[Rfam]
RNA: Small nucleolar RNA SNORD115
Organism: Mesocricetus auratus
RNA sequence: GCGUCUAUGAUGACAAACCAAUGUCAUCAAGAGAGGUGCUGACAUAAAUAUCAUGCUCAGGGGAGUACGCUGAGGCCC
Numbered sequence: 001g002c003g004u005c006u007a008u009g010a011u012g013a014c015a016a017a018c019c020a021a022u023g024u025c026a027u028c029a030a031g032a033g034a035g036g037u038g039c040u041g042a043c044a045u046a047a048a049u050a051u052c053a054u055g056c057u058c059a060g061g062g063g064a065g066u067a068c069g070c071u072g073a074g075g076c077c078c
Base pairs, nucleotide, nucleotide: 001078003076004075005072008069009068